The record is a 49-nucleotide RNA from Cellulomonas pakistanensis, which matches "Guanidine-II riboswitch aptamer (mini-ykkC)" in Rfam. Simpler in structure and has fewer highly conserved nucleotide positions than the ykkC-yxkD leader. Taxonomically the source falls in Cellulomonas (Bacteria, Actinomycetes, Micrococcales, Cellulomonadaceae). For this family Rfam cites "The Structure of the Guanidine-II Riboswitch" (Huang et al., Cell Chem Biol, 2017). The family's consensus secondary structure is taken from published work.

RNA sequence: GCCCGGGGACGACCCCGGGCCGGACGACCGGCCGCCGGGGACGACCCCG
Numbered sequence: 001g002c003c004c005g006g007g008g009a010c011g012a013c014c015c016c017g018g019g020c021c022g023g024a025c026g027a028c029c030g031g032c033c034g035c036c037g038g039g040g041a042c043g044a045c046c047c048c049g
Stems, first nucleotide, its partner, number of pairs: 001020008036049005